Rfam assigns this 80-nucleotide RNA from Medicago truncatula to the family "MIR5269 microRNA precursor family". Pairs were carried over by alignment from the consensus structure, which was predicted with RNAalifold. The organism belongs to Medicago, within Eukaryota. A search with the family's covariance model found it, with a score of 70 bits.

Nucleotides: 080
Base pairs, nucleotide, nucleotide: 001080002079005076006075007074008073009072010071011070012069013068014067015066016065017064018063024057025056026054027053028052029051030050031049032048
Number, partner (000 for none) and nucleotide at each position: 001080u002079u003000g004000g005076g006075u007074g008073a009072a010071a011070u012069c013068a014067a015066u016065g017064u018063a019000a020000g021000a022000c023000c024057u025056a026054c027053a028052c029051u030050u031049u032048g033000a034000a035000a036000a037000u038000c039000g040000a041000a042000g043000c044000c045000a046000c047000a048032u049031a050030g051029a052028g053027u054026g055000g056025u057024g058000a059000g060000a061000c062000a063018u064017a065016c066015a067014u068013u069012g070011a071010u072009u073008u074007c075006a076005c077000a078000a079002a080001a